This 54-nucleotide sequence from Anabarilius grahami belongs to the Rfam family "U7 small nuclear RNA". The family's consensus secondary structure was predicted with PFOLD. Lineage of the source: Eukaryota > Actinopterygii > Ostariophysi > Otophysi > Anabarilius.

[Rfam]
Nucleotides: 054
Stems, first nucleotide, its partner, number of pairs: 031051008
Number, partner (000 for none) and nucleotide at each position: 001000a002000a003000a004000a005000a006000u007000u008000g009000c010000u011000c012000a013000u014000u015000u016000a017000g018000u019000a020000a021000u022000u023000g024000u025000c026000c027000a028000g029000u030000a031051g032050g033049u034048u035047u036046u037045c038044u039000a040000u041000a042000a043000a044038a045037g046036a047035a048034a049033a050032c051031c052000c053000a054000u